[Rfam]
The family of this 312-nucleotide sequence from Teichococcus cervicalis is "Alphaproteobacteria transfer-messenger RNA".
On this family, see Mao et al., RNA Biol 2010: "Variations on the tmRNA gene".
Clan: tRNA clan.
It scores 244 bits against the family's covariance model.
Bacterial tmRNA, also known as 10Sa RNA or SsrA, is named for its dual tRNA and mRNA-like properties.
The organism belongs to Teichococcus cervicalis, within Bacteria.
The family's RNA type in Rfam is non-coding RNA gene.

RNA sequence: GGCCUCGAUUUCCACAGCCGGGCAGCCUAUAUCGGGAGCGUCGUCCUCGGACGACUAUGGCGAUAAACGGUACGUGGAAUAAGCGUUGCGGACCCGGGGGCAGUACCCGGCGUCUCCACCAUGCCCCUCGGGGCGCUGUGGGGACGACACAGGCUCGACGCGCGCGGUAAAGACGUAUCUUUUGCCCGGCAUUGUACCGCCGUUAUCGGGCUAAAUCACAAGUGCCAACGAUAACAGCCGCGAGGCUGUGGCGCUCGCUGCCUAAUAGGUAAGCGCGGUCCGGGGGGAACCGGGCAACAGAAUCCCCCCACU
Numbered sequence: 001g002g003c004c005u006c007g008a009u010u011u012c013c014a015c016a017g018c019c020g021g022g023c024a025g026c027c028u029a030u031a032u033c034g035g036g037a038g039c040g041u042c043g044u045c046c047u048c049g050g051a052c053g054a055c056u057a058u059g060g061c062g063a064u065a066a067a068c069g070g071u072a073c074g075u076g077g078a079a080u081a082a083g084c085g086u087u088g089c090g091g092a093c094c095c096g097g098g099g100g101c102a103g104u105a106c107c108c109g110g111c112g113u114c115u116c117c118a119c120c121a122u123g124c125c126c127c128u129c130g131g132g133g134c135g136c137u138g139u140g141g142g143g144a145c146g147a148c149a150c151a152g153g154c155u156c157g158a159c160g161c162g163c164g165c166g167g168u169a170a171a172g173a174c175g176u177a178u179c180u181u182u183u184g185c186c187c188g189g190c191a192u193u194g195u196a197c198c199g200c201c202g203u204u205a206u207c208g209g210g211c212u213a214a215a216u217c218a219c220a221a222g223u224g225c226c227a228a229c230g231a232u233a234a235c236a237g238c239c240g241c242g243a244g245g246c247u248g249u250g251g252c253g254c255u256c257g258c259u260g261c262c263u264a265a266u267a268g269g270u271a272a273g274c275g276c277g278g279u280c281c282g283g284g285g286g287g288a289a290c291c292g293g294g295c296a297a298c299a300g301a302a303u304c305c306c307c308c309c310a311c312u
Stems, first nucleotide, its partner, number of pairs: 040055005059186005069179007084164003088161003094110005111146009187202004192213001194211001197209002276292004282309006